[Rfam]
RNA sequence: GGCCAGUGAUGUAAGGAUAAUAUUUGCUACUCUUGAUUGGGUUCCCCAAUUUGAUGAUUUUUAGCCACCAAGAUCUCUGAGGCC
Numbered sequence: 001g002g003c004c005a006g007u008g009a010u011g012u013a014a015g016g017a018u019a020a021u022a023u024u025u026g027c028u029a030c031u032c033u034u035g036a037u038u039g040g041g042u043u044c045c046c047c048a049a050u051u052u053g054a055u056g057a058u059u060u061u062u063a064g065c066c067a068c069c070a071a072g073a074u075c076u077c078u079g080a081g082g083c084c
Base pairs, nucleotide, nucleotide: 001084002083003082004081
RNA: Small nucleolar RNA SNORD24